[Rfam]
RNA: TPP riboswitch aptamer (THI element)
RNA sequence: AACAAAACACAGGGGAGCUUGUAUUGGCAGGCUGAGAGGAAGUCAUCAACUUCGACCCUUUAACCUGAUGCGGAUAAUGCCGCCGUAGGAAGCCGUUUACAUACGCGUU
Numbered sequence: 001a002a003c004a005a006a007a008c009a010c011a012g013g014g015g016a017g018c019u020u021g022u023a024u025u026g027g028c029a030g031g032c033u034g035a036g037a038g039g040a041a042g043u044c045a046u047c048a049a050c051u052u053c054g055a056c057c058c059u060u061u062a063a064c065c066u067g068a069u070g071c072g073g074a075u076a077a078u079g080c081c082g083c084c085g086u087a088g089g090a091a092g093c094c095g096u097u098u099a100c101a102u103a104c105g106c107g108u109u
Stems, first nucleotide, its partner, number of pairs: 006097003011059004017032005039053005064089004070083004